Description:
This 70-nucleotide RNA from Megalops atlanticus belongs to the Rfam family "Small nucleolar RNA SNORD2". A search with the family's covariance model found it, with a score of 63 bits. The family's consensus secondary structure was predicted with WAR. On this family, see Zhou et al., Gene 2004: "Identification of a novel box C/D snoRNA from mouse nucleolar cDNA library". Rfam classes the family as a C/D-box small nucleolar RNA.
[Rfam]
RNA sequence: GAGUGAUAUGAUGUUAUGCCAUCUUUCGGGACUGACCAGAACUGGAGAUGACUUUUUCCACUGAUCGCUC
Numbered sequence: 001g002a003g004u005g006a007u008a009u010g011a012u013g014u015u016a017u018g019c020c021a022u023c024u025u026u027c028g029g030g031a032c033u034g035a036c037c038a039g040a041a042c043u044g045g046a047g048a049u050g051a052c053u054u055u056u057u058c059c060a061c062u063g064a065u066c067g068c069u070c
Base pairs, nucleotide, nucleotide: 001070002069003068004067005066006065